[Rfam]
RNA sequence: GAUUCGAUAGUAUGGUAGAAAGAUUCAUAUAUGAAUCUUUCUACCAUACUAUCUAUUUUUAUUAUUUUUAUGUAUAAAGAUAGAAACUGA
Number, nucleotide and partner (000 for none) at each position: 001g000002a000003u000004u000005c000006g053007a052008u051009a050010g049011u048012a047013u046014g045015g044016u043017a042018g041019a040020a039021a038022g037023a036024u035025u034026c033027a032028u000029a000030u000031a000032u027033g026034a025035a024036u023037c022038u021039u020040u019041c018042u017043a016044c015045c014046a013047u012048a011049c010050u009051a008052u007053c006054u000055a000056u000057u000058u000059u000060u000061a000062u000063u000064a000065u000066u000067u000068u000069u000070a000071u000072g000073u000074a000075u000076a000077a000078a000079g000080a000081u000082a000083g000084a000085a000086a000087c000088u000089g000090a000
Plastid-psbM 3UTR RNA: a 90-nucleotide RNA from Citrus reticulata. A reference for the family is Richter et al. (2023), "Retrograde signaling in plants: A critical review focusing on the GUN pathway and beyond", Plant Commun. Plastid psbM is a non-coding RNA (ncRNA) recognised in plastids. The family's RNA type in Rfam is cis-regulatory element. Rfam 15.1 lists 627 matches to the family in 337 species.